[Rfam]
RNA sequence: AGGAAAGAGAGGGAUUUGAAUCCUCGGUAUGAAUAACUCAUACAACGGAUUAA
Dot-bracket structure: ........(((((.......))))).((((((.....))))))..........
Numbered sequence: 001a002g003g004a005a006a007g008a009g010a011g012g013g014a015u016u017u018g019a020a021u022c023c024u025c026g027g028u029a030u031g032a033a034u035a036a037c038u039c040a041u042a043c044a045a046c047g048g049a050u051u052a053a
Stems, first nucleotide, its partner, number of pairs: 009025005027043006